[Rfam]
Rfam assigns this 109-nucleotide sequence from Miscanthus lutarioriparius to the family "MIR5565 microRNA precursor family". Rfam links the family to the GO terms RISC complex and miRNA-mediated post-transcriptional gene silencing. The family's consensus secondary structure was predicted with RNAalifold.
RNA sequence: GUCGUCGGAUUCACCUCAAUCCACAUAUGUUGUGGUGGAUUAGGGUAAAAUUUAGUUCAAGUUCCACUUUAAUCCAUCGCAACACAUAUGGAUUGAUACAAAUCCAACU
Numbered sequence: 001g002u003c004g005u006c007g008g009a010u011u012c013a014c015c016u017c018a019a020u021c022c023a024c025a026u027a028u029g030u031u032g033u034g035g036u037g038g039a040u041u042a043g044g045g046u047a048a049a050a051u052u053u054a055g056u057u058c059a060a061g062u063u064c065c066a067c068u069u070u071a072a073u074c075c076a077u078c079g080c081a082a083c084a085c086a087u088a089u090g091g092a093u094u095g096a097u098a099c100a101a102a103u104c105c106a107a108c109u
Base pairs, nucleotide, nucleotide: 004108005107007105008104009103010102011101016096017095018094019093020092021091022090023089025087026086028084029083030082031081032080035077036076037075038074039073040072041071042070043069045067046066